[Rfam]
RNA sequence: UAUAUAGAUAGCCUUCUCUUCCCGGUUCUUCCCGGAGUCGGGAAAAGCUGGGUUGAGAGGGCGGAAAAAAAAAAAA
Numbered sequence: 001u002a003u004a005u006a007g008a009u010a011g012c013c014u015u016c017u018c019u020u021c022c023c024g025g026u027u028c029u030u031c032c033c034g035g036a037g038u039c040g041g042g043a044a045a046a047g048c049u050g051g052g053u054u055g056a057g058a059g060g061g062c063g064g065a066a067a068a069a070a071a072a073a074a075a076a
Base pairs, nucleotide, nucleotide: 014059015058016057017056018055021052022051023050024049025048029044030043031042032041033040034039
A member of the RNA family "mir-320 microRNA precursor family" from Prolemur simus, 76 nucleotides long. Lineage of the source: Eukaryota > Metazoa > Sarcopterygii > Eutheria > Prolemur.